[Rfam]
RNA sequence: AGGGCAUUUCAAAGAGAGCUUCUGGGACUAAAACUAGGAGGUUGUAACACUGUAACCUAAGAUGGAAGUUCUCCACAGGAAGUAAUAGACAUUCGAUAGUGCCAUGUUUUCCUGAGGAGACACAGGA
Numbered sequence: 001a002g003g004g005c006a007u008u009u010c011a012a013a014g015a016g017a018g019c020u021u022c023u024g025g026g027a028c029u030a031a032a033a034c035u036a037g038g039a040g041g042u043u044g045u046a047a048c049a050c051u052g053u054a055a056c057c058u059a060a061g062a063u064g065g066a067a068g069u070u071c072u073c074c075a076c077a078g079g080a081a082g083u084a085a086u087a088g089a090c091a092u093u094c095g096a097u098a099g100u101g102c103c104a105u106g107u108u109u110u111c112c113u114g115a116g117g118a119g120a121c122a123c124a125g126g127a
Base pairs, nucleotide, nucleotide: 002057003056006053007052014045016043017042019040020039021038023037026035070120071119072118073117074116077113078112079111080110085105086104088102090101091100092099093098
A member of the RNA family "Small nucleolar RNA SNORA25" from Molossus molossus, 127 nucleotides long.
It scores 92 bits against the family's covariance model.
About the family: ACA25 is a member of the H/ACA class of snoRNA that guide the sites of modification of uridines to pseudouridines.
Rfam classes the family as an H/ACA-box small nucleolar RNA.
The source organism's lineage runs through Eukaryota, Opisthokonta, Gnathostomata, Tetrapoda and Molossus.